[Rfam]
A member of the RNA family "mir-9256 microRNA precursor family" from Pipistrellus kuhlii, 67 nucleotides long. NCBI's taxonomy places the organism under Eukaryota, Vertebrata, Amniota, Yangochiroptera, Pipistrellus. Pairs were carried over by alignment from the consensus structure, which was predicted with RNAalifold.
RNA sequence: CUCUGCACUGAGUGGCAAGAUUAUUAUGAUAUCUGAACGCAUAAUAAUCUGGCCACUCAGUGUAUAU
Numbered sequence: 001c002u003c004u005g006c007a008c009u010g011a012g013u014g015g016c017a018a019g020a021u022u023a024u025u026a027u028g029a030u031a032u033c034u035g036a037a038c039g040c041a042u043a044a045u046a047a048u049c050u051g052g053c054c055a056c057u058c059a060g061u062g063u064a065u066a067u
Stems, first nucleotide, its partner, number of pairs: 004064013019049010
Dot-bracket structure: ...(((((((((((((..((((((((((...........))))))))))..)))))))))))))...